Source information:
FMN riboswitch aptamer (RFN element): a 135-nucleotide RNA from Microlunatus soli. A reference for the family is Winkler et al. (2002), "An mRNA structure that controls gene expression by binding FMN", Proc Natl Acad Sci U S A. About the family: The RFN element is a highly conserved domain that is found frequently in the 5'-untranslated regions of prokaryotic mRNAs that encode for flavin mononucleotide (FMN) biosynthesis and transport proteins. This element is a metabolite-dependent riboswitch that directly binds FMN in the absence of proteins. In Bacillus subtilis, the riboswitch most likely controls gene expression by causing premature transcription termination within the 5' untranslated region of the ribDEAHT operon and precluding access to the ribosome-binding site of ypaA mRNA.The FMN riboswitch structure, reported in present an FMN-bound six-stem junction, adopts a butterfly-like scaffold, stapled together by opposingly directed but nearly identically folded peripheral domains. Taxonomically the source falls in Microlunatus (Bacteria, Actinomycetota, Actinomycetes, Propionibacteriaceae).
RNA sequence: GAGUGGUUCCGGGGUCGGUGAAAGUCCGAGCCGGCGGUGACAGUCCGCGACCCGAUGACGAUCAGCAGGUCGGAUUCGGUUGAUGUGGUGAAACUCCACGACCGACGGUGAAAGUCCGGAUGGGAGGAACCGCGG
Numbered sequence: 001g002a003g004u005g006g007u008u009c010c011g012g013g014g015u016c017g018g019u020g021a022a023a024g025u026c027c028g029a030g031c032c033g034g035c036g037g038u039g040a041c042a043g044u045c046c047g048c049g050a051c052c053c054g055a056u057g058a059c060g061a062u063c064a065g066c067a068g069g070u071c072g073g074a075u076u077c078g079g080u081u082g083a084u085g086u087g088g089u090g091a092a093a094c095u096c097c098a099c100g101a102c103c104g105a106c107g108g109u110g111a112a113a114g115u116c117c118g119g120a121u122g123g124g125a126g127g128a129a130c131c132g133c134g135g
Stems, first nucleotide, its partner, number of pairs: 003133008016028003030115002032104002034048004043102002052079004084100005106118003